[Rfam]
Notes:
The family of this 205-nucleotide RNA from Chlorocebus sabaeus is "Small nucleolar RNA SNORA73 family". For this family Rfam cites "5'ETS rRNA processing facilitated by four small RNAs: U14, E3, U17, and U3" (Enright et al., RNA, 1996). The base pairs follow the family's consensus structure, which is taken from published work. U17 (SNORA73A and SNORA73B) also known as E1 belongs to the H/ACA class of small nucleolar RNAs (snoRNAs). Vertebrate U17 is intron-encoded and ranges in length from 200-230 nucleotides, longer than most snoRNAs. It is one of the most abundant snoRNAs in human cells and is essential for the cleavage of pre-rRNA within the 5' external transcribed spacer (ETS). This cleavage leads to the formation of 18S rRNA. Regions of the U17 RNA are complementary to rRNA and act as guides for RNA/RNA interactions, although these regions do not seem to be well conserved between organisms.
Nucleotides: 205
Stems, first nucleotide, its partner, number of pairs: 001107007008045001011043003015037003019030004048099004057092002060089001061086001063084003066079001134197003138193003151183006161169003
Number, partner (000 for none) and nucleotide at each position: 001107c002106c003105a004104a005103c006102g007101u008045g009000u010000a011043a012042u013041a014000u015037c016036c017035u018000g019030g020029g021028a022027g023000a024000u025000c026000a027022u028021u029020u030019u031000u032000u033000c034000u035017a036016g037015g038000c039000u040000c041013u042012g043011u044000c045008c046000a047000c048099g049098u050097g051096g052000c053000u054000u055000a056000g057092g058091g059000a060089a061086g062000c063084a064083u065082a066079g067000g068000g069000c070000u071000c072000u073000g074000c075000c076000c077000c078000a079066u080000g081000a082065u083064g084063u085000a086061c087000a088000g089060u090000c091058c092057c093000u094000u095000u096051c097050c098049a099048c100000a101007g102006u103005g104004u105003u106002g107001g108000a109000a110000a111000u112000g113000a114000a115000g116000c117000u118000g119000g120000g121000u122000c123000u124000g125000g126000u127000g128000u129000u130000u131000g132000c133000a134197c135196u136195u137000u138193c139192a140191u141000a142000u143000u144000c145000c146000u147000g148000u149000a150000a151183c152182u153181u154180c155179u156178c157000a158000g159000a160000a161169u162168c163167c164000u165000g166000u167163g168162g169161a170000c171000a172000a173000u174000g175000a176000c177000u178156g179155g180154g181153g182152a183151g184000a185000c186000a187000a188000a189000c190000c191140a192139u193138g194000c195136a196135g197134g198000a199000a200000a201000u202000a203000u204000g205000u